[Rfam]
RNA sequence: ACCCUCGUAUUAUUGUGUUCUGGGUUGUGACCGAGCUUAGCCUUGUUCAUUUUUUUACACAACACUUCCGUAAAAAAUAAAACACGGCACGUUUGAGAUCACCCUUUCAGGCAGAAAUAGCGGAUAAUGGCCUGCCCCGAUAUGCAGCAAAUCUGCCGUAGAUGUGCCAUUUCAGGGCGU
Numbered sequence: 001a002c003c004c005u006c007g008u009a010u011u012a013u014u015g016u017g018u019u020c021u022g023g024g025u026u027g028u029g030a031c032c033g034a035g036c037u038u039a040g041c042c043u044u045g046u047u048c049a050u051u052u053u054u055u056u057a058c059a060c061a062a063c064a065c066u067u068c069c070g071u072a073a074a075a076a077a078u079a080a081a082a083c084a085c086g087g088c089a090c091g092u093u094u095g096a097g098a099u100c101a102c103c104c105u106u107u108c109a110g111g112c113a114g115a116a117a118u119a120g121c122g123g124a125u126a127a128u129g130g131c132c133u134g135c136c137c138c139g140a141u142a143u144g145c146a147g148c149a150a151a152u153c154u155g156c157c158g159u160a161g162a163u164g165u166g167c168c169a170u171u172u173c174a175g176g177g178c179g180u
Stems, first nucleotide, its partner, number of pairs: 022100002025097002033092001035090001040088003043084001045083003051077008162180004167175001
A member of the RNA family "Pseudomonas sRNA P1" from Pseudomonas putida, 180 nucleotides long.